[Rfam]
This 57-nucleotide sequence from Ziziphus jujuba belongs to the Rfam family "Plastid-ndhJ 3UTR RNA". It scores 46 bits against the family's covariance model.
RNA sequence: UGUAGAACUAUGUACCACGCACACCAUUUAGAUGGGUUCCAAAAAGUAACAACAUUA
Numbered sequence: 001u002g003u004a005g006a007a008c009u010a011u012g013u014a015c016c017a018c019g020c021a022c023a024c025c026a027u028u029u030a031g032a033u034g035g036g037u038u039c040c041a042a043a044a045a046g047u048a049a050c051a052a053c054a055u056u057a
Base pairs, nucleotide, nucleotide: 019037020036022034023033025031

From the family's description: Plastid ndhJ is a non-coding RNA (ncRNA) present in plastids. Pairs were carried over by alignment from the consensus structure, which was predicted with LocARNA. It is annotated as a cis-regulatory element. The literature on the family includes a 2023 paper in Plant Commun by Richter et al., "Retrograde signaling in plants: A critical review focusing on the GUN pathway and beyond".